[Rfam]
RNA sequence: GGUCUGAUGCCACAUCGCUAGUAGCUACAAGCCUACAAGCUUUGACUAGAGAUGCUAUGAUUAAUACAAAGUUGUUUUACAUGUUGAUAGGAACAUGGGCAUGGCUUCUACGUCUGUCCAUGGAGCCAGUUUCAGUGACCAUAUUC
Numbered sequence: 001g002g003u004c005u006g007a008u009g010c011c012a013c014a015u016c017g018c019u020a021g022u023a024g025c026u027a028c029a030a031g032c033c034u035a036c037a038a039g040c041u042u043u044g045a046c047u048a049g050a051g052a053u054g055c056u057a058u059g060a061u062u063a064a065u066a067c068a069a070a071g072u073u074g075u076u077u078u079a080c081a082u083g084u085u086g087a088u089a090g091g092a093a094c095a096u097g098g099g100c101a102u103g104g105c106u107u108c109u110a111c112g113u114c115u116g117u118c119c120a121u122g123g124a125g126c127c128a129g130u131u132u133c134a135g136u137g138a139c140c141a142u143a144u145u146c
Stems, first nucleotide, its partner, number of pairs: 002065002005063004009058001013054004018049001020047003024040003077138004090127002095121001097119005
Rfam assigns this 146-nucleotide RNA sequence from Zea mays to the family "Small nucleolar RNA snoR2/U65".
The match comes from Rfam's covariance-model search (76 bits).
It is annotated as an H/ACA-box small nucleolar RNA.
A reference for the family is Shaw et al. (1998), "Localization and processing from a polycistronic precursor of novel snoRNAs in maize", J Cell Sci.